[Rfam]
RNA sequence: UAAAAUAAGAGCAUUUGGUGGAUGCCUUGGCACUAGAAGGCGAUGAAGGACGUAAUACGCUGCGAUAAGCUUCGGGGAGCUGCGAAUAGGCUUUGAUCCGAAGAUUUCCGAAUGGGGAAACCUACCUGCUUGCAGGUAUCAUAUGGUGAAUACAUAGCUAUAUGAGGCAAACCCAGCGAACUGAAAUAUCUCAGUAGCUGGAGGAAAGGACAUCAACCGAGACUCCGUUAGUAGUGACGAGCGAACGCGGACCAGGCCAGUGGCUACAAAAUAAAAAUUAGAACAACAUGGAAAGGUUGGCCGUAGAGGGUGAUAGCCCCUUAUAAGUAAAAGGUUUUGUAGUCCUUGAGUAAGGCGGGACACGUGAAAUCCUGUUUGAAAAUAGGGGGACCACCCUCUAAGCCUAAGUACUCUCUAGUGACCGAUAGUGAACAAGUACCGUGAGGGAAAGGUGAAAAGUACCCCGAAAGGGGAGUGAAAUAGUAUCUGAAACCGAAUGCUUACAAG
Number, nucleotide and partner (000 for none) at each position: 001u000002a000003a000004a000005a000006u000007a000008a000009g502010a501011g500012c499013a498014u497015u496016u495017g494018g493019u000020g000021g000022a000023u000024g487025c452026c451027u000028u000029g423030g422031c420032a419033c418034u417035a416036g415037a414038a412039g411040g168041c167042g000043a000044u000045g000046a000047a000048g109049g108050a107051c064052g063053u062054a000055a000056u000057a000058c000059g000060c000061u000062g053063c052064g051065a000066u000067a000068a000069g000070c103071u102072u101073c100074g099075g098076g097077g000078a000079g091080c090081u089082g000083c000084g000085a000086a000087u000088a000089g081090g080091c079092u000093u000094u000095g000096a000097u076098c075099c074100g073101a072102a071103g070104a000105u000106u000107u050108c049109c048110g000111a000112a000113u000114g123115g122116g121117g000118a000119a000120a000121c116122c115123u114124a137125c136126c135127u134128g133129c000130u000131u000132g000133c128134a127135g126136g125137u124138a000139u165140c164141a163142u162143a161144u160145g159146g158147u157148g000149a000150a000151u000152a000153c000154a000155u000156a000157g147158c146159u145160a144161u143162a142163u141164g140165a139166g000167g041168c040169a000170a000171a000172c203173c201174c200175a199176g198177c197178g000179a000180a000181c000182u000183g190184a189185a000186a000187u000188a000189u184190c183191u000192c000193a000194g000195u000196a000197g177198c176199u175200g174201g173202a000203g172204g000205a000206a000207a000208g000209g000210a000211c000212a000213u220214c219215a000216a000217c000218c000219g214220a213221g000222a000223c408224u251225c250226c249227g248228u247229u000230a000231g000232u000233a000234g242235u241236g000237a000238c000239g000240a000241g235242c234243g000244a000245a000246c000247g228248c227249g226250g225251a224252c000253c000254a405255g404256g403257c402258c000259a000260g000261u000262g346263g345264c000265u341266a340267c339268a338269a337270a000271a000272u000273a000274a000275a000276a000277a000278u326279u325280a324281g000282a000283a000284c299285a298286a297287c296288a000289u000290g000291g000292a000293a000294a000295g000296g287297u286298u285299g284300g000301c000302c306303g000304u000305a000306g302307a000308g320309g319310g318311u000312g000313a000314u000315a000316g000317c000318c310319c309320c308321u000322u000323a000324u280325a279326a278327g000328u000329a000330a000331a000332a000333g000334g000335u000336u000337u269338u268339g267340u266341a265342g000343u000344c000345c263346u262347u000348g000349a000350g000351u000352a000353a377354g376355g375356c374357g373358g372359g371360a370361c000362a000363c000364g000365u000366g000367a000368a000369a000370u360371c359372c358373u357374g356375u355376u354377u353378g000379a000380a000381a000382a000383u000384a399385g398386g397387g396388g395389g000390a000391c000392c000393a000394c000395c388396c387397u386398c385399u384400a000401a000402g257403c256404c255405u254406a000407a000408g223409u000410a000411c039412u038413c000414u037415c036416u035417a034418g033419u032420g031421a000422c030423c029424g000425a000426u000427a000428g000429u000430g000431a000432a000433c000434a000435a000436g000437u000438a000439c446440c445441g000442u000443g000444a000445g440446g439447g000448a000449a000450a000451g026452g025453u000454g000455a000456a000457a000458a000459g000460u000461a000462c473463c472464c471465c470466g000467a000468a000469a000470g465471g464472g463473g462474a000475g000476u000477g000478a000479a000480a000481u000482a000483g000484u000485a000486u000487c024488u000489g000490a000491a000492a000493c018494c017495g016496a015497a014498u013499g012500c011501u010502u009503a000504c000505a000506a000507g000